Background: The family of this 127-nucleotide RNA from Calidifontibacillus erzurumensis is "PyrR binding site". Lineage of the source: Bacteria > Bacillati > Caryophanales > Bacillaceae > Calidifontibacillus. The family's consensus secondary structure is taken from published work. This family represents the PyrR binding site and terminator structure. This RNA structure is found upstream of a variety of genes involved in pyrimidine biosynthesis and transport. The alignment also includes a portion of the antiterminator structure.

[Rfam]
RNA sequence: AUGUCCUUUAAGUGCAGUCCCGUGAGGCUGAGAAGGAAAACGUGCAAAGCAUGAGGCAGAGUCUGUCCUCAUAAAUUACUAUGCCUGAAUAAUGUCCUCUCACCAAGCGGUGGGAGGAUUUUUUUAU
Numbered sequence: 001a002u003g004u005c006c007u008u009u010a011a012g013u014g015c016a017g018u019c020c021c022g023u024g025a026g027g028c029u030g031a032g033a034a035g036g037a038a039a040a041c042g043u044g045c046a047a048a049g050c051a052u053g054a055g056g057c058a059g060a061g062u063c064u065g066u067c068c069u070c071a072u073a074a075a076u077u078a079c080u081a082u083g084c085c086u087g088a089a090u091a092a093u094g095u096c097c098u099c100u101c102a103c104c105a106a107g108c109g110g111u112g113g114g115a116g117g118a119u120u121u122u123u124u125u126a127u
Base pairs, nucleotide, nucleotide: 004037005036006035007034008033009032015030016029017028018027019026052088054086055085056084057083058082060080061079062078091122092121094119095118096117097116098115099114100113101112102111103110104109